[Rfam]
RNA sequence: CUGUAUCUACAGAUAGAUGGUGAACAGUUUGCUGUUGUGCUUUUGGUUUGCACUAGGAGGCAAAAGAAAAAAAUCCCUGUGCUUUCUGUCUGUCUUUGUGGUGGCACAGAUUGAAUUGGUGAAUACAUCU
Numbered sequence: 001c002u003g004u005a006u007c008u009a010c011a012g013a014u015a016g017a018u019g020g021u022g023a024a025c026a027g028u029u030u031g032c033u034g035u036u037g038u039g040c041u042u043u044u045g046g047u048u049u050g051c052a053c054u055a056g057g058a059g060g061c062a063a064a065a066g067a068a069a070a071a072a073a074u075c076c077c078u079g080u081g082c083u084u085u086c087u088g089u090c091u092g093u094c095u096u097u098g099u100g101g102u103g104g105c106a107c108a109g110a111u112u113g114a115a116u117u118g119g120u121g122a123a124u125a126c127a128u129c130u
Stems, first nucleotide, its partner, number of pairs: 002062003006058003012051001014050005022040001024038005074122002077119003082113001085110004090104005